[Rfam]
RNA sequence: AAUUUUUUGUUCGAUAUAGAACGCUCAUGUCGAGAAAAUGAUUUGAAAUCUUU
Numbered sequence: 001a002a003u004u005u006u007u008u009g010u011u012c013g014a015u016a017u018a019g020a021a022c023g024c025u026c027a028u029g030u031c032g033a034g035a036a037a038a039u040g041a042u043u044u045g046a047a048a049u050c051u052u053u
Stems, first nucleotide, its partner, number of pairs: 011033007
Dot-bracket structure: ..........(((((((.........)))))))....................
Shown here is a 53-nucleotide sequence, a member of the family "Plastid-atpF group II-D1 intron". The family has 49 seed sequences and 1,372 matches in Rfam 15.1. A reference for the family is Richter et al. (2023), "Retrograde signaling in plants: A critical review focusing on the GUN pathway and beyond", Plant Commun.